Rfam assigns this 30-nucleotide RNA sequence from Methanocaldococcus jannaschii to the family "CRISPR RNA direct repeat element". The base pairs follow the family's consensus structure, which was predicted with WAR. The family has 4 seed sequences and 127 matches in Rfam 15.1.
[Rfam]
RNA sequence: AUUAAAAUCAGACCGUUUCGGAAUGGGAUU
Numbered sequence: 001a002u003u004a005a006a007a008u009c010a011g012a013c014c015g016u017u018u019c020g021g022a023a024u025g026g027g028a029u030u
Stems, first nucleotide, its partner, number of pairs: 013026005